[Rfam]
RNA sequence: UGUCGAGGUUUUCCUCGGUAGUUAACUGCAGUCGGUUCUAUUUUUUCCUCAGCAGUUAACUACCGAGUGAUAU
Numbered sequence: 001u002g003u004c005g006a007g008g009u010u011u012u013c014c015u016c017g018g019u020a021g022u023u024a025a026c027u028g029c030a031g032u033c034g035g036u037u038c039u040a041u042u043u044u045u046u047c048c049u050c051a052g053c054a055g056u057u058a059a060c061u062a063c064c065g066a067g068u069g070a071u072a073u
Base pairs, nucleotide, nucleotide: 012069015066016065017064018063019062020061021060022059023058024057025056026055027054028053029052